This 62-nucleotide sequence from Lupinus albus belongs to the Rfam family "Plastid-psbN 5UTR RNA". The family's RNA type in Rfam is cis-regulatory element. Taxonomically the source falls in Lupinus (Eukaryota, Viridiplantae, Euphyllophyta, Genisteae). A reference for the family is Richter et al. (2023), "Retrograde signaling in plants: A critical review focusing on the GUN pathway and beyond", Plant Commun. From the family's description: Plastid psbN is a non-coding RNA (ncRNA) recognised in plastids.
RNA sequence: UGCAACAACCAUCAAAGGAGUACAUCCCCACCCCGGAGCUACUUUUACCAUAUUCCGAAUUC
Numbered sequence: 001u002g003c004a005a006c007a008a009c010c011a012u013c014a015a016a017g018g019a020g021u022a023c024a025u026c027c028c029c030a031c032c033c034c035g036g037a038g039c040u041a042c043u044u045u046u047a048c049c050a051u052a053u054u055c056c057g058a059a060u061u062c
Stems, first nucleotide, its partner, number of pairs: 017045006025037003